[Rfam]
RNA sequence: AAGACGGUAUCCGCAAGGAGCUGUACUUCAACCGUAUGUUUUUUUUUGCUUGAACAACUGAAUAGCUUUACCCAAGCAAUAUGUCGGAUUCUGCUCUGAGCCUAACCGGACCGAGACAGAAGG
Numbered sequence: 001a002a003g004a005c006g007g008u009a010u011c012c013g014c015a016a017g018g019a020g021c022u023g024u025a026c027u028u029c030a031a032c033c034g035u036a037u038g039u040u041u042u043u044u045u046u047u048g049c050u051u052g053a054a055c056a057a058c059u060g061a062a063u064a065g066c067u068u069u070a071c072c073c074a075a076g077c078a079a080u081a082u083g084u085c086g087g088a089u090u091c092u093g094c095u096c097u098g099a100g101c102c103u104a105a106c107c108g109g110a111c112c113g114a115g116a117c118a119g120a121a122g123g
Stems, first nucleotide, its partner, number of pairs: 001028003004024005010019002091119003094115003098111001101109002

Shown here is a 123-nucleotide RNA sequence from Paenibacillus tyrphae, a member of the family "pan motif".
Pairs were carried over by alignment from the consensus structure, which is taken from published work.
The match comes from Rfam's covariance-model search (41 bits).
Lineage of the source: Bacteria > Bacillati > Bacilli > Caryophanales > Paenibacillus.
The family's RNA type in Rfam is cis-regulatory element.